[Rfam]
Annotation
The record is a 469-nucleotide part of an RNA from Thamnocephalis sphaerospora, which matches "Eukaryotic large subunit ribosomal RNA" in Rfam.

RNA sequence: GGUAGUAGCGAAUAUUCAAAUGAGAUCUUUGAAGACUGAAGUGGGGAAGGGUUCCGUGUGAACAGCGGUUGGACACGGGUCAGUCGAUCCUAAGGGUCAGGCAAACGCUUAUGUGUUGUAAGAGCGCGCUUGUUCGCGCCCAUACCCGAAAGGGAAGCCGGUUAAUAUUCCGGCACCAGAAUGUGGAUUCACAACGGCAACGUUAAACGAACCUGGAGACGCCGGCACUUGCCCCGGGGGGAGUUCUCUCCUCUCCUUGACAGCCCUGCGAGAGCGGAGGCCCAUGGAAUCGCGUCAAGCGGAGAAGUGGCCUUUCGGCUGGUAGAGCGUCGCAUCUUUGCGGCGUCCGGUGCGCAGUUGACGGUCCUUGAAAAUCCAGGGGAGUGUUCCCGACUCGAAUCGGGGGAUUCUCACGUCUGGUCGUACCCAUAACCGCAGCAGGUCUCCAAGGUGAACAGCCUCUAGUUGA
Numbered sequence: 001g002g003u004a005g006u007a008g009c010g011a012a013u014a015u016u017c018a019a020a021u022g023a024g025a026u027c028u029u030u031g032a033a034g035a036c037u038g039a040a041g042u043g044g045g046g047a048a049g050g051g052u053u054c055c056g057u058g059u060g061a062a063c064a065g066c067g068g069u070u071g072g073a074c075a076c077g078g079g080u081c082a083g084u085c086g087a088u089c090c091u092a093a094g095g096g097u098c099a100g101g102c103a104a105a106c107g108c109u110u111a112u113g114u115g116u117u118g119u120a121a122g123a124g125c126g127c128g129c130u131u132g133u134u135c136g137c138g139c140c141c142a143u144a145c146c147c148g149a150a151a152g153g154g155a156a157g158c159c160g161g162u163u164a165a166u167a168u169u170c171c172g173g174c175a176c177c178a179g180a181a182u183g184u185g186g187a188u189u190c191a192c193a194a195c196g197g198c199a200a201c202g203u204u205a206a207a208c209g210a211a212c213c214u215g216g217a218g219a220c221g222c223c224g225g226c227a228c229u230u231g232c233c234c235c236g237g238g239g240g241g242a243g244u245u246c247u248c249u250c251c252u253c254u255c256c257u258u259g260a261c262a263g264c265c266c267u268g269c270g271a272g273a274g275c276g277g278a279g280g281c282c283c284a285u286g287g288a289a290u291c292g293c294g295u296c297a298a299g300c301g302g303a304g305a306a307g308u309g310g311c312c313u314u315u316c317g318g319c320u321g322g323u324a325g326a327g328c329g330u331c332g333c334a335u336c337u338u339u340g341c342g343g344c345g346u347c348c349g350g351u352g353c354g355c356a357g358u359u360g361a362c363g364g365u366c367c368u369u370g371a372a373a374a375u376c377c378a379g380g381g382g383a384g385u386g387u388u389c390c391c392g393a394c395u396c397g398a399a400u401c402g403g404g405g406g407a408u409u410c411u412c413a414c415g416u417c418u419g420g421u422c423g424u425a426c427c428c429a430u431a432a433c434c435g436c437a438g439c440a441g442g443u444c445u446c447c448a449a450g451g452u453g454a455a456c457a458g459c460c461u462c463u464a465g466u467u468g469a
Stems, first nucleotide, its partner, number of pairs: 015033006034467004043447004049427002054078006063071002085423003089153002094147002096112002100109003115137001157174005177419004182415005187409001193204004212380006221365004226360002229357004234350003237257006261321005282310004290302004328345007433442002449461004
Dot-bracket structure: ..............((((((.......))))))((((.....((((..((...((((((...((.....)).))))))......(((.((...((((..(((....))).))..(.....................)........))....))...(((((........)))))..((((.((((((.....((((....)))).......((((((...((((.((.((((.(((((((((.........))))))...(((((................((((....((((.....))))....))))......)))))......(((((((....)))))))..)))...)))).)).)))).........))))))............................).))))))))).)))..)).....((......)).)))).((((.....))))..))))..